[Rfam]
RNA sequence: CUUUCCGGCAAAGGGGAGUAGCUGCACAACAAAGUCGUCAUUACGGGUUAAAACCCCGGCUUUGUUGGCAACAUUUAAUGUUGUU
Numbered sequence: 001c002u003u004u005c006c007g008g009c010a011a012a013g014g015g016g017a018g019u020a021g022c023u024g025c026a027c028a029a030c031a032a033a034g035u036c037g038u039c040a041u042u043a044c045g046g047g048u049u050a051a052a053a054c055c056c057c058g059g060c061u062u063u064g065u066u067g068g069c070a071a072c073a074u075u076u077a078a079u080g081u082u083g084u085u
Base pairs, nucleotide, nucleotide: 028066029065030064031063032062033061034060035059036058037057045056046055047054048053067085068084069083070082071081072080073079
RNA: Manganese Mn2+ riboswitch aptamer (yybP-ykoY)